[Rfam]
RNA sequence: GGAGUGUGCUCAGAGCAGGGGCCUGAAGAAUGGGUCCUCUGUUUAUAACACACCCAAUAGGAAUCUGGGGUUUUGUAAGGAGGGGCACAAAAAUGGUCUGGUCUACCUAUGAACAAAUGCCCUAUAUUU
Numbered sequence: 001g002g003a004g005u006g007u008g009c010u011c012a013g014a015g016c017a018g019g020g021g022c023c024u025g026a027a028g029a030a031u032g033g034g035u036c037c038u039c040u041g042u043u044u045a046u047a048a049c050a051c052a053c054c055c056a057a058u059a060g061g062a063a064u065c066u067g068g069g070g071u072u073u074u075g076u077a078a079g080g081a082g083g084g085g086c087a088c089a090a091a092a093a094u095g096g097u098c099u100g101g102u103c104u105a106c107c108u109a110u111g112a113a114c115a116a117a118u119g120c121c122c123u124a125u126a127u128u129u
Stems, first nucleotide, its partner, number of pairs: 002055001004053005013044009022034002068122004074115003080110001082104003086100002088096001090094001
Dot-bracket structure: .(.(((((....(((((((((((.........)).)))))))))....))))).)............((((..(((...(.(((.(((.(...).)..)).))).....)..)))...)))).......

A member of the RNA family "Small nucleolar RNA SNORA11" from Sciurus carolinensis, 129 nucleotides long. Rfam classes the family as an H/ACA-box small nucleolar RNA. Taxonomically the source falls in Sciurus (Eukaryota, Tetrapoda, Theria, Sciurinae). For this family Rfam cites "A novel experimental approach for systematic identification of box H/ACA snoRNAs from eukaryotes" (Gu et al., Nucleic Acids Res, 2005). Rfam links the family to the GO terms RNA processing and nucleolus. The match comes from Rfam's covariance-model search (108 bits). Rfam describes the family as follows. U107 (SNORA11) is a member of the H/ACA class of snoRNAs that guide the sites of modification of uridines to pseudouridines. This snoRNA was identified by RT-PCR from blood cells and its expression confirmed by Northern blot analysis.